A member of the RNA family "FMN riboswitch aptamer (RFN element)" from Catonella morbi, 122 nucleotides long.
NCBI's taxonomy places the organism under Bacteria, Bacillati, Bacillota, Clostridia, Catonella morbi.
Gene Ontology term of the family: FMN binding.
[Rfam]
RNA sequence: AGCAUUCUUCAGGGCAGGGUGAAAUUCCCGACCGGCGGUAAAGUCCGCGAGCAUUUUGCAAGAAUCGGUGAGCUUAGGUAAUUCCGAUACCGACAGUAAAGUCUGGAUGAAAGAAGAAAUUA
Numbered sequence: 001a002g003c004a005u006u007c008u009u010c011a012g013g014g015c016a017g018g019g020u021g022a023a024a025u026u027c028c029c030g031a032c033c034g035g036c037g038g039u040a041a042a043g044u045c046c047g048c049g050a051g052c053a054u055u056u057u058g059c060a061a062g063a064a065u066c067g068g069u070g071a072g073c074u075u076a077g078g079u080a081a082u083u084c085c086g087a088u089a090c091c092g093a094c095a096g097u098a099a100a101g102u103c104u105g106g107a108u109g110a111a112a113g114a115a116g117a118a119a120u121u122a
Stems, first nucleotide, its partner, number of pairs: 005118006017029003031102002033092002035048004043090002064088005094105003